[Rfam]
RNA sequence: GGGAGCGUUUGCACGACUGGUGUCGGCCCAGGUCUUCAAAACCUGUGUAGGGUGUGAACAACGCUCUAGGUGGGUUCGAUUCCCAUCCGCUCCC
Numbered sequence: 001g002g003g004a005g006c007g008u009u010u011g012c013a014c015g016a017c018u019g020g021u022g023u024c025g026g027c028c029c030a031g032g033u034c035u036u037c038a039a040a041a042c043c044u045g046u047g048u049a050g051g052g053u054g055u056g057a058a059c060a061a062c063g064c065u066c067u068a069g070g071u072g073g074g075u076u077c078g079a080u081u082c083c084c085a086u087c088c089g090c091u092c093c094c
Stems, first nucleotide, its partner, number of pairs: 001094007011027002014025004029045005048068005071085004